[Rfam]
RNA sequence: UGGUUAAAAUACACUCAGCGAUUUAAUUUUGUUAACUCAUUACAAUCGUUAUUUAUUUUUAACCUAAAAAAAUCGAUCUUGAAUAAAUUAUUUUAGGAAUAGUUAUCCUUGUUGUUUAUCUUUUGGUAGGCUGCAUGGGUAAUUAUUACUAGAGUAGUAAUUGUUCUUGGAAGAGCCAUUCCAUAUUCCCAACGUUUUCAACGCCAGUAGGCAGCUUCUCGUUAAGUAGUGUUGAAUAUUGUUGAAUAAACGGAUUGGUACACCAGCAAAAAAUAUGCAUUCGUAUAUUGCUAUAUAUGUUAUAUUC
Numbered sequence: 001u002g003g004u005u006a007a008a009a010u011a012c013a014c015u016c017a018g019c020g021a022u023u024u025a026a027u028u029u030u031g032u033u034a035a036c037u038c039a040u041u042a043c044a045a046u047c048g049u050u051a052u053u054u055a056u057u058u059u060u061a062a063c064c065u066a067a068a069a070a071a072a073u074c075g076a077u078c079u080u081g082a083a084u085a086a087a088u089u090a091u092u093u094u095a096g097g098a099a100u101a102g103u104u105a106u107c108c109u110u111g112u113u114g115u116u117u118a119u120c121u122u123u124u125g126g127u128a129g130g131c132u133g134c135a136u137g138g139g140u141a142a143u144u145a146u147u148a149c150u151a152g153a154g155u156a157g158u159a160a161u162u163g164u165u166c167u168u169g170g171a172a173g174a175g176c177c178a179u180u181c182c183a184u185a186u187u188c189c190c191a192a193c194g195u196u197u198u199c200a201a202c203g204c205c206a207g208u209a210g211g212c213a214g215c216u217u218c219u220c221g222u223u224a225a226g227u228a229g230u231g232u233u234g235a236a237u238a239u240u241g242u243u244g245a246a247u248a249a250a251c252g253g254a255u256u257g258g259u260a261c262a263c264c265a266g267c268a269a270a271a272a273a274u275a276u277g278c279a280u281u282c283g284u285a286u287a288u289u290g291c292u293a294u295a296u297a298u299g300u301u302a303u304a305u306u307c
Stems, first nucleotide, its partner, number of pairs: 002064007017050006027042001030039002080271001086162007164269002167266004175259004180254003191243004198235005203212003214230003218226002244251001
Dot-bracket structure: .(((((((........((((((....(..((......))..)..)))))).......)))))))...............(.....(((((((...............................................................))))))).((.((((....((((.(((........((((...((((((((....))).(((.((.....)).))))))))....))))(......)))).))))...)))).)).)....................................

Plasmodium RNA of unkown function RUF1: a 307-nucleotide RNA sequence from Plasmodium berghei. It is annotated as a small RNA. The match comes from Rfam's covariance-model search (90 bits). NCBI's taxonomy places the organism under Eukaryota, Alveolata, Apicomplexa, Vinckeia, Plasmodium berghei. The literature on the family includes a 2007 paper in RNA by Chakrabarti et al., "Structural RNAs of known and unknown function identified in malaria parasites by comparative genomics and RNA analysis".